Shown here is a 91-nucleotide RNA from Papaver nudicaule, a member of the family "Small nucleolar RNA Z161/Z228".
The family is grouped with related families in Rfam's "SNORD35 clan".
Rfam 15.1 lists 630 matches to the family in 214 species.
The family's RNA type in Rfam is C/D-box small nucleolar RNA.
RNA sequence: AUUCCAGGUGCUGAAAAUGGAUUUAAAACUCACGACGGUCAUCAGAGACUUUGUGUCGUUGUUGAUUCGAAAUCUAUUUUUUCUGAUGGUU
Dot-bracket structure: (.((..........................................(((.....)))..............................)).)